Rfam assigns this 173-nucleotide sequence from Neobacillus cucumis to the family "Group II catalytic intron D1-D4-3". The literature on the family includes a 2001 paper in Trends Genet by Bonen and Vogel, "The ins and outs of group II introns".
RNA sequence: UUGGCCGUGAGGUAUCGUGCGGAGGGCUUGAAGGCAAAACUCGGAACAGGCGACUAAAACUAAACCAUGUUGUUGGCUGGCGGAAACGGAUUACCCUUCAAAAGAAGGGGACUUCAAAUACCACAAUUAUUGCUGUUAGUUAUGAGGACUGGGUUCGAGGGAAAGUUCAGUGA
Numbered sequence: 001u002u003g004g005c006c007g008u009g010a011g012g013u014a015u016c017g018u019g020c021g022g023a024g025g026g027c028u029u030g031a032a033g034g035c036a037a038a039a040c041u042c043g044g045a046a047c048a049g050g051c052g053a054c055u056a057a058a059a060c061u062a063a064a065c066c067a068u069g070u071u072g073u074u075g076g077c078u079g080g081c082g083g084a085a086a087c088g089g090a091u092u093a094c095c096c097u098u099c100a101a102a103a104g105a106a107g108g109g110g111a112c113u114u115c116a117a118a119u120a121c122c123a124c125a126a127u128u129a130u131u132g133c134u135g136u137u138a139g140u141u142a143u144g145a146g147g148a149c150u151g152g153g154u155u156c157g158a159g160g161g162a163a164a165g166u167u168c169a170g171u172g173a
Base pairs, nucleotide, nucleotide: 004013005012006011028173029172030171034166035165040159041158042157043156044155047151048150049149065147066146068144069143076140077139078138080136081135082134083133085131086130089115090114094109095108096107097106